[Rfam]
RNA sequence: GCGGGCGUAGCUCAGUUGGUAGAGCGCCACCCUUCCAAGGUGGAUGUCGCAAGUUCGAAUCUUGUCGCCCGCU
Numbered sequence: 001g002c003g004g005g006c007g008u009a010g011c012u013c014a015g016u017u018g019g020u021a022g023a024g025c026g027c028c029a030c031c032c033u034u035c036c037a038a039g040g041u042g043g044a045u046g047u048c049g050c051a052a053g054u055u056c057g058a059a060u061c062u063u064g065u066c067g068c069c070c071g072c073u
Base pairs, nucleotide, nucleotide: 001072002071003070004069005068006067007066010025011024012023013022027043028042029041030040031039049065050064051063052062053061
RNA: tRNA